[Rfam]
RNA sequence: GUGGGCUAUGGCGACAUGUGUCCCAUCACCAUGGGAGGCAAGAUGGUGGGCACGCUGUGCGCCAUUUCAGGCGUCCUCACCAUCGCCCUGCCCGUCCCCGUGAUAGUCUCCAAC
Numbered sequence: 001g002u003g004g005g006c007u008a009u010g011g012c013g014a015c016a017u018g019u020g021u022c023c024c025a026u027c028a029c030c031a032u033g034g035g036a037g038g039c040a041a042g043a044u045g046g047u048g049g050g051c052a053c054g055c056u057g058u059g060c061g062c063c064a065u066u067u068c069a070g071g072c073g074u075c076c077u078c079a080c081c082a083u084c085g086c087c088c089u090g091c092c093c094g095u096c097c098c099c100g101u102g103a104u105a106g107u108c109u110c111c112a113a114c
Stems, first nucleotide, its partner, number of pairs: 001114002004111002008107002011104001014101002018097001020095002037077002040074001049063003
The family of this 114-nucleotide sequence from Muraenolepis orangiensis is "Potassium channel RNA editing signal". The family's RNA type in Rfam is cis-regulatory element. Lineage of the source: Eukaryota > Metazoa > Clupeocephala > Paracanthopterygii > Muraenolepis. This family represents a group of sequences related to the human potassium channel Kv1.1 hairpin element which directs the efficient modification of an adenosine to inosine by an adenosine deaminase acting on RNA (ADAR). The ADAR modification causes an isoleucine/valine recoding event which lies in the ion-conducting pore of the potassium channel. It is thought that this editing event targets the process of fast inactivation and allows a more rapid recovery from inactivation at negative potentials. Pairs were carried over by alignment from the consensus structure, which is taken from published work.